A member of the RNA family "Small nucleolar RNA SNORD35" from Chanos chanos, 85 nucleotides long. The source organism's lineage runs through Eukaryota, Bilateria, Anotophysi, Chanidae and Chanos. Rfam classes the family as a C/D-box small nucleolar RNA. A reference for the family is Nicoloso et al. (1996), "Intron-encoded, antisense small nucleolar RNAs: the characterization of nine novel species points to their direct role as guides for the 2'-O-ribose methylation of rRNAs", J Mol Biol. About the family: U35 is a C/D box snoRNA located in intron 6 of ribosomal protein L13A and intron 3 of ribosomal protein S11 in humans and at homologous positions in mouse and chicken ribosomal protein genes. U35 guides the methylation of 2'-O-ribose sites in 28S rRNA.
[Rfam]
RNA sequence: UGCAAAUGAUGCAUUUUCUCACGAUGGUCUUCCAAGCUUACGCUGCUUUGACGACAUUGCCUAACGGCAACACUGAUGCAGUCUU
Numbered sequence: 001u002g003c004a005a006a007u008g009a010u011g012c013a014u015u016u017u018c019u020c021a022c023g024a025u026g027g028u029c030u031u032c033c034a035a036g037c038u039u040a041c042g043c044u045g046c047u048u049u050g051a052c053g054a055c056a057u058u059g060c061c062u063a064a065c066g067g068c069a070a071c072a073c074u075g076a077u078g079c080a081g082u083c084u085u
Stems, first nucleotide, its partner, number of pairs: 001080004